Eukaryotic small subunit ribosomal RNA: a 596-nucleotide part of an RNA from Anurofeca richardsi.
The family has 90 seed sequences and 75,755 matches in Rfam 15.1.
[Rfam]
RNA sequence: AGUCAUAUGCUUGUCUCAAAGAUUAAGCCAUGCAUGUCUAAGUAUAAACAAUUCUAUACUGUGAAACUGCCAAUGGCUCAUUAAAUCAGUUAUAGUUUAUUUGAUAAUACCUACACUACUUGGAUAACCGUGGUAAUUCUAGAGCUAAUACAUGCACAAAAGCCCGACUUCUGGAAGGGCUGUAUUUAUUAGAUACAAAACCAAUGCGGGGCAACCCGGUUCUUUGGUGAUUCAUAAUAACUUCGCGAAUCGCAUGGCCUUGUGCCGGCGAUGAUUCAUUCAAAUUUCUGCCCUAUCAACUUUCGAUGGUAAGGUAUUGGCUUACCAUGGUUACAACGGGUAACGGAGAAUUAGGGUUCGAUUCCGGAGAGGGAGCCUGAGAAACGGCUACCACUUCCAAGGAAGGCAGCAGGCGCGCAAAUUACCCAAUCCUGACACAGGGAGGUGGUGACAAAAAAUAACAAUGCAGGACUUUUCGAAGCCUUGCAAUUGGAAUGAGAACAAUCUAAACCCCUUAUCGAGUAUCAAUUGGAGGGCAAGUCUGGUGCCAGCAGCCGCGGUAAUUCCAGCUCCAAUAGCGUAUAUUAAAGUUGUUG
Numbered sequence: 001a002g003u004c005a006u007a008u009g010c011u012u013g014u015c016u017c018a019a020a021g022a023u024u025a026a027g028c029c030a031u032g033c034a035u036g037u038c039u040a041a042g043u044a045u046a047a048a049c050a051a052u053u054c055u056a057u058a059c060u061g062u063g064a065a066a067c068u069g070c071c072a073a074u075g076g077c078u079c080a081u082u083a084a085a086u087c088a089g090u091u092a093u094a095g096u097u098u099a100u101u102u103g104a105u106a107a108u109a110c111c112u113a114c115a116c117u118a119c120u121u122g123g124a125u126a127a128c129c130g131u132g133g134u135a136a137u138u139c140u141a142g143a144g145c146u147a148a149u150a151c152a153u154g155c156a157c158a159a160a161a162g163c164c165c166g167a168c169u170u171c172u173g174g175a176a177g178g179g180c181u182g183u184a185u186u187u188a189u190u191a192g193a194u195a196c197a198a199a200a201c202c203a204a205u206g207c208g209g210g211g212c213a214a215c216c217c218g219g220u221u222c223u224u225u226g227g228u229g230a231u232u233c234a235u236a237a238u239a240a241c242u243u244c245g246c247g248a249a250u251c252g253c254a255u256g257g258c259c260u261u262g263u264g265c266c267g268g269c270g271a272u273g274a275u276u277c278a279u280u281c282a283a284a285u286u287u288c289u290g291c292c293c294u295a296u297c298a299a300c301u302u303u304c305g306a307u308g309g310u311a312a313g314g315u316a317u318u319g320g321c322u323u324a325c326c327a328u329g330g331u332u333a334c335a336a337c338g339g340g341u342a343a344c345g346g347a348g349a350a351u352u353a354g355g356g357u358u359c360g361a362u363u364c365c366g367g368a369g370a371g372g373g374a375g376c377c378u379g380a381g382a383a384a385c386g387g388c389u390a391c392c393a394c395u396u397c398c399a400a401g402g403a404a405g406g407c408a409g410c411a412g413g414c415g416c417g418c419a420a421a422u423u424a425c426c427c428a429a430u431c432c433u434g435a436c437a438c439a440g441g442g443a444g445g446u447g448g449u450g451a452c453a454a455a456a457a458a459u460a461a462c463a464a465u466g467c468a469g470g471a472c473u474u475u476u477c478g479a480a481g482c483c484u485u486g487c488a489a490u491u492g493g494a495a496u497g498a499g500a501a502c503a504a505u506c507u508a509a510a511c512c513c514c515u516u517a518u519c520g521a522g523u524a525u526c527a528a529u530u531g532g533a534g535g536g537c538a539a540g541u542c543u544g545g546u547g548c549c550a551g552c553a554g555c556c557g558c559g560g561u562a563a564u565u566c567c568a569g570c571u572c573c574a575a576u577a578g579c580g581u582a583u584a585u586u587a588a589a590g591u592u593g594u595u596g
Stems, first nucleotide, its partner, number of pairs: 001586003005583007014456001016454001020449001021416001027414003031411003036070002041068003048062002077369003087290003092285002096283002102278003119154001121152002128144001131141003161181005168174002186240006200228004208217003250271004255267004292340003299331003306328008344366004348359004371392002374389003394405004422447001424446003430442005462492003465488006472481003499519002501516001503515001529575006542569004551558002
Dot-bracket structure: (((.(((((((..(.(...((.....(((.(((..((...(((....((...........))...)))))......(((.......(((..((..((....(((..............(.((.....(..(((.....)))..)......)).)......(((((..((...))..)))))....((((((........((((....(((....))).......))))......)))))).........((((.((((.....))))))))....)))...))))..))).(((....(((....((((((((.......)))))))))))......)))...((((((((....))))...))))))).((.(((..........))).)).((((....))))...)))))).).....(.(((...(((((...))))).)))).)....).).....(((((((((.(((....))).)))))).)))......(((.(...........)).)).........((((((.......((((.....((....)).......)))))))))).))))))))))..........